[Rfam]
RNA sequence: UAAAAAGUUUUCUAGGGUUCCGCAAGGCAAAUUGGUCUGGUCCGAGAGAAAACGCACGUUAUGUGUACACGGAGGGAUAAAAGCCCGGGAGGA
Numbered sequence: 001u002a003a004a005a006a007g008u009u010u011u012c013u014a015g016g017g018u019u020c021c022g023c024a025a026g027g028c029a030a031a032u033u034g035g036u037c038u039g040g041u042c043c044g045a046g047a048g049a050a051a052a053c054g055c056a057c058g059u060u061a062u063g064u065g066u067a068c069a070c071g072g073a074g075g076g077a078u079a080a081a082a083g084c085c086c087g088g089g090a091g092g093a
Base pairs, nucleotide, nucleotide: 007053008052009051010050011049012048015043016042020040021039022037023034024033025032054066055065056064057063058062068088070091074086075085076084
This 93-nucleotide RNA sequence from Virgibacillus oceani belongs to the Rfam family "Guanidine-I riboswitch aptamer".